[Rfam]
RNA sequence: UCGGCUGUCUUUGGGGAGUAGCCGGCUUCCGUUUCCGGAAGCGCUCAUGUCAACACGCUUGGUCGGAUCGACCGUGGCAUGAGCAGCCGUCGCACCUUUUCAGGUUGGCAAGACCAUCGACAUGUCAGCGCGGCCGGGCGCGCGGGCAUGUCGCAUGUUCACGCCCGGC
Numbered sequence: 001u002c003g004g005c006u007g008u009c010u011u012u013g014g015g016g017a018g019u020a021g022c023c024g025g026c027u028u029c030c031g032u033u034u035c036c037g038g039a040a041g042c043g044c045u046c047a048u049g050u051c052a053a054c055a056c057g058c059u060u061g062g063u064c065g066g067a068u069c070g071a072c073c074g075u076g077g078c079a080u081g082a083g084c085a086g087c088c089g090u091c092g093c094a095c096c097u098u099u100u101c102a103g104g105u106u107g108g109c110a111a112g113a114c115c116a117u118c119g120a121c122a123u124g125u126c127a128g129c130g131c132g133g134c135c136g137g138g139c140g141c142g143c144g145g146g147c148a149u150g151u152c153g154c155a156u157g158u159u160c161a162c163g164c165c166c167g168g169c
Base pairs, nucleotide, nucleotide: 025042026041027040043084044083045082046081047080048079049078050077051076052075060074061073062072063071064070
RNA: Manganese Mn2+ riboswitch aptamer (yybP-ykoY)